Glycine riboswitch aptamer: an 85-nucleotide RNA sequence from Lawsonibacter hominis.
The source organism's lineage runs through Bacteria, Bacillota, Clostridia, Eubacteriales and Lawsonibacter.
The base pairs follow the family's consensus structure.

RNA sequence: AUGACGGGGCCGGGAGAGUGCGAUUUGAUUCGCCGCCGAAGGGGAAGCGCAGUGAUCUCUCAGGCAUCAGGAUCGGCCCCCGACG
Numbered sequence: 001a002u003g004a005c006g007g008g009g010c011c012g013g014g015a016g017a018g019u020g021c022g023a024u025u026u027g028a029u030u031c032g033c034c035g036c037c038g039a040a041g042g043g044g045a046a047g048c049g050c051a052g053u054g055a056u057c058u059c060u061c062a063g064g065c066a067u068c069a070g071g072a073u074c075g076g077c078c079c080c081c082g083a084c085g
Stems, first nucleotide, its partner, number of pairs: 006080008020033004035065003038061002042059003